A member of the RNA family "tRNA" from Pocillopora damicornis, 73 nucleotides long.

RNA sequence: GGCUUGUUAGCUCAGUUGGUAGAGCGCUGCACCGGUAUCGCAAAGGUCAUGGGUUCAAAUCCCGUACGAGUCA
Numbered sequence: 001g002g003c004u005u006g007u008u009a010g011c012u013c014a015g016u017u018g019g020u021a022g023a024g025c026g027c028u029g030c031a032c033c034g035g036u037a038u039c040g041c042a043a044a045g046g047u048c049a050u051g052g053g054u055u056c057a058a059a060u061c062c063c064g065u066a067c068g069a070g071u072c073a
Base pairs, nucleotide, nucleotide: 001072002071003070004069005068006067007066010025011024012023013022028042029041030040049065050064051063052062053061
It scores 54 bits against the family's covariance model. The base pairs follow the family's consensus structure, which is taken from published work. Rfam links the family to the GO term triplet codon-amino acid adaptor activity. Rfam 15.1 lists 5,335,975 matches to the family in 14,413 species. About the family: Transfer RNA (tRNA) molecules are approximately 80 nucleotides in length.